[Rfam]
RNA: Mammalian CPEB3 ribozyme
Nucleotides: 080
Base pairs, nucleotide, nucleotide: 014046015045017044018043019042022080024078026076027075028074029041030040031039051069052068053067054066055065056064
Number, partner (000 for none) and nucleotide at each position: 001000c002000u003000c004000g005000g006000u007000c008000a009000a010000c011000u012000c013000u014046u015045g016000a017044g018043c019042c020000a021000u022080a023000g024078c025000a026076g027075g028074a029041g030040u031039g032000c033000u034000c035000a036000c037000a038000u039031c040030a041029u042019g043018g044017c045015c046014a047000u048000c049000a050000u051069c052068a053067g054066a055065u056064u057000c058000u059000u060000a061000c062000a063000a064056a065055a066054u067053c068052u069051g070000u071000g072000a073000a074028u075027u076026c077000a078024g079000a080022u